[Rfam]
RNA sequence: AUAAUGAUACAUCCGCAUGGUGCGGUUCUGCCCACAGGAAUGGGAAUGGCUGAAAUGCCAGUGG
Numbered sequence: 001a002u003a004a005u006g007a008u009a010c011a012u013c014c015g016c017a018u019g020g021u022g023c024g025g026u027u028c029u030g031c032c033c034a035c036a037g038g039a040a041u042g043g044g045a046a047u048g049g050c051u052g053a054a055a056u057g058c059c060a061g062u063g064g
Base pairs, nucleotide, nucleotide: 012061013025014024015023016022026046027045028044047060048059049058
The family of this 64-nucleotide RNA sequence from Anaerotignum lactatifermentans is "pemK RNA". NCBI's taxonomy places the organism under Bacteria, Bacillota, Clostridia, Anaerotignaceae, Anaerotignum lactatifermentans. Rfam classes the family as a cis-regulatory element. It scores 39 bits against the family's covariance model.